[Rfam]
The record is a 70-nucleotide RNA from Actinomadura madurae, which matches "L31-Actinobacteria ribosomal protein leader" in Rfam. By type it is a cis-regulatory leader. The sequence is in the family's curated seed alignment. NCBI's taxonomy places the organism under Bacteria, Actinomycetota, Actinomycetes, Thermomonosporaceae, Actinomadura madurae.
RNA sequence: GCGGUACCGGUUCACGUCUCCCACAACUCCCAUGGGCUUCCCCAUGCGAGCCUGGAGGCGCCCGGCGACC
Numbered sequence: 001g002c003g004g005u006a007c008c009g010g011u012u013c014a015c016g017u018c019u020c021c022c023a024c025a026a027c028u029c030c031c032a033u034g035g036g037c038u039u040c041c042c043c044a045u046g047c048g049a050g051c052c053u054g055g056a057g058g059c060g061c062c063c064g065g066c067g068a069c070c
Stems, first nucleotide, its partner, number of pairs: 003070003007065004015060007